[Rfam]
Record summary:
Rfam assigns this 86-nucleotide RNA sequence from Olea europaea to the family "Small nucleolar RNA R16". Gene Ontology terms of the family: nucleolus and RNA processing. It is annotated as a C/D-box small nucleolar RNA. Lineage of the source: Eukaryota > Tracheophyta > lamiids > Oleeae > Olea europaea.
RNA sequence: AGUGGCAAAUGAAGAAUGUUAAAUCUUAUCCUACACACUGAAUGACCGUGUGGACUAUAUAACUCCGCUUAUUAUCUGAUGCCUUC
Numbered sequence: 001a002g003u004g005g006c007a008a009a010u011g012a013a014g015a016a017u018g019u020u021a022a023a024u025c026u027u028a029u030c031c032u033a034c035a036c037a038c039u040g041a042a043u044g045a046c047c048g049u050g051u052g053g054a055c056u057a058u059a060u061a062a063c064u065c066c067g068c069u070u071a072u073u074a075u076c077u078g079a080u081g082c083c084u085u086c
Base pairs, nucleotide, nucleotide: 004083005082006081007080